[Rfam]
RNA sequence: GGCCGGAUAAGGUGCUUGCACCGCCAUCCGGCAACAUUGUGAUGCCUGAUGGCGACGCGAUUGCGUCUUAUCAGGCC
Numbered sequence: 001g002g003c004c005g006g007a008u009a010a011g012g013u014g015c016u017u018g019c020a021c022c023g024c025c026a027u028c029c030g031g032c033a034a035c036a037u038u039g040u041g042a043u044g045c046c047u048g049a050u051g052g053c054g055a056c057g058c059g060a061u062u063g064c065g066u067c068u069u070a071u072c073a074g075g076c077c
Stems, first nucleotide, its partner, number of pairs: 002032007011022004044076008054067005
Nucleoid-associated noncoding RNA 4 (CssrE): a 77-nucleotide RNA from Citrobacter freundii. By type it is a small RNA. Rfam 15.1 lists 870 matches to the family in 32 species. The organism belongs to Citrobacter freundii complex, within Bacteria. On this family, see Qian et al., MBio 2015: "A New Noncoding RNA Arranges Bacterial Chromosome Organization". Rfam links the family to the GO terms bacterial nucleoid, protein binding and bacterial nucleoid DNA packaging. It scores 62 bits against the family's covariance model. From the family's description: In E. coli small RNA transcribed from repeated extragenic palindromic element (REP325) called nucleoid-associated ncRNA 4 (nRNA4) collaborates HU protein in condensing the DNA. The secondary structure but not the sequence of the RNA is important in nucleoid condensation. Also identified in Shigella as CssrE.